[Rfam]
Nucleotides: 052
Base pairs, nucleotide, nucleotide: 011028012027013026014025015024016023033046034045035044036043037042
Number, partner (000 for none) and nucleotide at each position: 001000c002000g003000g004000c005000g006000g007000g008000a009000c010000a011028c012027c013026c014025c015024u016023c017000c018000c019000c020000a021000a022000c023016g024015a025014g026013g027012g028011g029000c030000g031000c032000u033046u034045g035044a036043c037042u038000g039000g040000a041000a042037g043036g044035u045034u046033a047000c048000c049000a050000u051000c052000a
About this RNA:
A member of the RNA family "serC leader" from Pseudooceanicola batsensis, 52 nucleotides long. The literature on the family includes a 2005 paper in Genome Biol by Corbino et al., "Evidence for a second class of S-adenosylmethionine riboswitches and other regulatory RNA motifs in alpha-proteobacteria". Rfam links the family to the GO term regulation of gene expression. About the family: This family is a putative regulatory RNA structure that is found upstream of the serC-serA operon in some alpha-proteobacteria. Rfam classes the family as a cis-regulatory leader.